Rfam assigns this 116-nucleotide sequence from Stenotrophomonas maltophilia to the family "Xanthomonadaceae sRNA asX1". Taxonomically the source falls in Stenotrophomonas maltophilia (Bacteria, Lysobacterales, Lysobacteraceae, Stenotrophomonas). The base pairs follow the family's consensus structure, which was predicted with CMfinder. By type it is a small RNA. A reference for the family is Schmidtke et al. (2011), "Genome-wide transcriptome analysis of the plant pathogen Xanthomonas identifies sRNAs with putative virulence functions", Nucleic Acids Res.
RNA sequence: CACCCACCGUGGCUGGCGCCGUAGGCGCCCGUGACCGGAAUUGGAACAGGGGCCGGUACAGGCGCAUGGUGGGGGAGCAGGGGGCCGGCAGUCGGGGGACUGUCCGGCCCUGUUUU
Numbered sequence: 001c002a003c004c005c006a007c008c009g010u011g012g013c014u015g016g017c018g019c020c021g022u023a024g025g026c027g028c029c030c031g032u033g034a035c036c037g038g039a040a041u042u043g044g045a046a047c048a049g050g051g052g053c054c055g056g057u058a059c060a061g062g063c064g065c066a067u068g069g070u071g072g073g074g075g076a077g078c079a080g081g082g083g084g085c086c087g088g089c090a091g092u093c094g095g096g097g098g099a100c101u102g103u104c105c106g107g108c109c110c111u112g113u114u115u116u
Stems, first nucleotide, its partner, number of pairs: 003073009012063002015032001018030001033059001034057005041050002080111004085106001087104007